[Rfam]
Shown here is a 113-nucleotide sequence from Thalassobaculum fulvum, a member of the family "Glycine riboswitch aptamer". Taxonomically the source falls in Thalassobaculum (Bacteria, Pseudomonadati, Pseudomonadota, Thalassobaculaceae). It scores 55 bits against the family's covariance model.
RNA sequence: ACGACUCUCGGGGGAGAGAGCGACGGGCCUCCGGUGACGAGCCGGUGACUGCGGUCGACGCCGAAGGAGCAACCGCCCCGGAAACUCUCAGGCGAAGGUACCCCGAGGCGAGG
Numbered sequence: 001a002c003g004a005c006u007c008u009c010g011g012g013g014g015a016g017a018g019a020g021c022g023a024c025g026g027g028c029c030u031c032c033g034g035u036g037a038c039g040a041g042c043c044g045g046u047g048a049c050u051g052c053g054g055u056c057g058a059c060g061c062c063g064a065a066g067g068a069g070c071a072a073c074c075g076c077c078c079c080g081g082a083a084a085c086u087c088u089c090a091g092g093c094g095a096a097g098g099u100a101c102c103c104c105g106a107g108g109c110g111a112g113g
Base pairs, nucleotide, nucleotide: 006108007107008106009105010104011103012102013101021057022056023055060093061092062091063089064088067087068086069085073081074080